[Rfam]
RNA sequence: GGGCUGUUGAGUGCGAGGGACCCCGAGGGAGGGCAGGCUGCCCCAGGCCCUGCCCCCUCCAGGAAGCCUUCUUGCUCCAGCCC
Numbered sequence: 001g002g003g004c005u006g007u008u009g010a011g012u013g014c015g016a017g018g019g020a021c022c023c024c025g026a027g028g029g030a031g032g033g034c035a036g037g038c039u040g041c042c043c044c045a046g047g048c049c050c051u052g053c054c055c056c057c058u059c060c061a062g063g064a065a066g067c068c069u070u071c072u073u074g075c076u077c078c079a080g081c082c083c
Stems, first nucleotide, its partner, number of pairs: 001083006009077005015071005023063002027059003031055007040048003